[Rfam]
SAM riboswitch aptamer (S box leader): a 119-nucleotide RNA sequence. The family's consensus secondary structure is taken from published work. From the family's description: The SAM riboswitch is found upstream of a number of genes which code for proteins involved in methionine or cysteine biosynthesis in Gram-positive bacteria. The SAM riboswitch acts at the level of transcription termination control. A search with the family's covariance model found it, with a score of 74 bits.
Nucleotides: 119
Base pairs, nucleotide, nucleotide: 003117004116005115006114007113008112013042014041015040016039017038021031022030023029025087026086027085028084043079044078045077046076048075049074050071051070052069053068083111088108089107090106092104
Number, partner (000 for none) and nucleotide at each position: 001000c002000c003117a004116c005115c006114a007113u008112c009000g010000a011000g012000a013042c014041c015040g016039g017038c018000a019000g020000a021031g022030g023029g024000a025087c026086a027085g028084g029023c030022c031021c032000u033000u034000u035000g036000a037000a038017g039016c040015c041014g042013g043079g044078g045077c046076a047000g048075c049074c050071c051070g052069c053068a054000g055000a056000c057000g058000c059000g060000a061000a062000a063000g064000c065000g066000c067000c068053u069052g070051c071050g072000u073000a074049g075048g076046u077045g078044c079043c080000a081000a082000a083111u084028c085027c086026u087025g088108c089107g090106g091000g092104g093000a094000c095000c096000g097000u098000g099000g100000c101000g102000u103000c104092c105000a106090c107089c108088g109000a110000a111083a112008g113007a114006u115005g116004g117003u118000u119000c